The record is a 359-nucleotide part of an RNA from Halostagnicola sp. A56, which matches "Archaeal small subunit ribosomal RNA" in Rfam. Rfam 15.1 lists 709 matches to the family in 491 species. Clan: SSU clan.
RNA sequence: GGCCUAAAGCGUCCGUAGCUGGCCACGCAAGUCCAUCGGGAAAUCUCUCCGCUCAACGGAGAGGCGUCCGGUGGAAACUGUGUGGCUUGGGACCGGAAGAUCCAGAGGGUACGUCUGGGGUAGGAGUGAAAUCCCGUAAUCCGAGACGGACCACCGGUGGCGAAAGCGCUCUGGAAAGACGGAUCCGACGGUGAGGGACGAAAGCUCGGGUCACGAACCGGAUUAGAUACCCGGGUAGUCCGAGCUGUAAACGAUGUCUGCUAGGUGUGACACAGGCUACGAGCCUGUGUUGUGCCGUAGGGAAGCCGUGAAGCAGACCGCCUGGGAAGUACGUCUGCAAGGAUGAAACUUAAAGGAAU
Numbered sequence: 001g002g003c004c005u006a007a008a009g010c011g012u013c014c015g016u017a018g019c020u021g022g023c024c025a026c027g028c029a030a031g032u033c034c035a036u037c038g039g040g041a042a043a044u045c046u047c048u049c050c051g052c053u054c055a056a057c058g059g060a061g062a063g064g065c066g067u068c069c070g071g072u073g074g075a076a077a078c079u080g081u082g083u084g085g086c087u088u089g090g091g092a093c094c095g096g097a098a099g100a101u102c103c104a105g106a107g108g109g110u111a112c113g114u115c116u117g118g119g120g121u122a123g124g125a126g127u128g129a130a131a132u133c134c135c136g137u138a139a140u141c142c143g144a145g146a147c148g149g150a151c152c153a154c155c156g157g158u159g160g161c162g163a164a165a166g167c168g169c170u171c172u173g174g175a176a177a178g179a180c181g182g183a184u185c186c187g188a189c190g191g192u193g194a195g196g197g198a199c200g201a202a203a204g205c206u207c208g209g210g211u212c213a214c215g216a217a218c219c220g221g222a223u224u225a226g227a228u229a230c231c232c233g234g235g236u237a238g239u240c241c242g243a244g245c246u247g248u249a250a251a252c253g254a255u256g257u258c259u260g261c262u263a264g265g266u267g268u269g270a271c272a273c274a275g276g277c278u279a280c281g282a283g284c285c286u287g288u289g290u291u292g293u294g295c296c297g298u299a300g301g302g303a304a305g306c307c308g309u310g311a312a313g314c315a316g317a318c319c320g321c322c323u324g325g326g327a328a329g330u331a332c333g334u335c336u337g338c339a340a341g342g343a344u345g346a347a348a349c350u351u352a353a354a355g356g357a358a359u
Stems, first nucleotide, its partner, number of pairs: 001322003009319001011199004016193001018192003022086007030079002032075009045063007090186003093182003101175007108152002112148005118142002123134003160167002204245006213239002218234004256318006264296014300307002324351003333344004